[Rfam]
RNA sequence: ACGUCAGGGGAUCGCCCUCCACCAGCGUGUUACGCCCGUGGGGGCGAAAGUC
Numbered sequence: 001a002c003g004u005c006a007g008g009g010g011a012u013c014g015c016c017c018u019c020c021a022c023c024a025g026c027g028u029g030u031u032a033c034g035c036c037c038g039u040g041g042g043g044g045c046g047a048a049a050g051u052c
Stems, first nucleotide, its partner, number of pairs: 016044007025035004
This 52-nucleotide sequence from Candidatus Rhodobacter oscarellae belongs to the Rfam family "ffh sRNA".
Taxonomically the source falls in Rhodobacter (Bacteria, Pseudomonadati, Pseudomonadota, Alphaproteobacteria).
The family's RNA type in Rfam is small RNA.
It scores 57 bits against the family's covariance model.
A reference for the family is Meyer et al. (2009), "Identification of candidate structured RNAs in the marine organism 'Candidatus Pelagibacter ubique'", BMC Genomics.